DUF2693 RNA: a 159-nucleotide sequence.
The sequence is in the family's curated seed alignment.
Pairs were carried over by alignment from the consensus structure, which is taken from published work.
By type it is a small RNA.
[Rfam]
RNA sequence: GGUCUUUGACAUAAUUGAUACAGGCGACAAUAGAAUAACUCACGCAGGUGCAAUGCCUGCAUAGUGACUAACAACAUAGCUUGCAGGCUUAGACCUAUCGUGCUAAGCACUGAACGGCUCACGACCGACCCCUGGACAUCGCAACGUCCCUGCAAGCAC
Number, nucleotide and partner (000 for none) at each position: 001g000002g000003u000004c000005u000006u000007u000008g000009a000010c000011a000012u000013a000014a000015u000016u000017g000018a000019u000020a000021c000022a000023g000024g000025c000026g000027a000028c000029a000030a000031u000032a000033g000034a000035a000036u000037a000038a000039c000040u000041c000042a000043c000044g060045c059046a058047g057048g056049u000050g000051c000052a000053a000054u000055g000056c048057c047058u046059g045060c044061a000062u000063a000064g000065u000066g000067a000068c000069u000070a000071a000072c000073a000074a000075c000076a000077u000078a000079g157080c156081u155082u154083g153084c152085a151086g150087g108088c107089u106090u105091a104092g103093a000094c000095c000096u000097a000098u000099c000100g000101u000102g000103c092104u091105a090106a089107g088108c087109a000110c000111u000112g000113a000114a000115c127116g126117g125118c000119u000120c000121a000122c000123g000124a000125c117126c116127g115128a000129c000130c000131c000132c000133u000134g149135g148136a147137c146138a000139u000140c000141g000142c000143a000144a000145c000146g137147u136148c135149c134150c086151u085152g084153c083154a082155a081156g080157c079158a000159c000